[Rfam]
RNA sequence: GCCACAUGAUGUUUUCUAGAUUGCAUUAGCACUCUGUGCAAAGAUGACCUCCCAUCUAUCACCCAAGGCUGAUGGCU
Numbered sequence: 001g002c003c004a005c006a007u008g009a010u011g012u013u014u015u016c017u018a019g020a021u022u023g024c025a026u027u028a029g030c031a032c033u034c035u036g037u038g039c040a041a042a043g044a045u046g047a048c049c050u051c052c053c054a055u056c057u058a059u060c061a062c063c064c065a066a067g068g069c070u071g072a073u074g075g076c077u
Stems, first nucleotide, its partner, number of pairs: 001076004029039004

The record is a 77-nucleotide sequence from Electrophorus electricus, which matches "Small nucleolar RNA SNORD83" in Rfam.
The match comes from Rfam's covariance-model search (62 bits).
NCBI's taxonomy places the organism under Eukaryota, Teleostei, Gymnotiformes, Gymnotidae, Electrophorus.
The literature on the family includes a 2000 paper in Nucleic Acids Res by Jady and Kiss, "Characterisation of the U83 and U84 small nucleolar RNAs: two novel 2'-O-ribose methylation guide RNAs that lack complementarities to ribosomal RNAs".
By type it is a C/D-box small nucleolar RNA.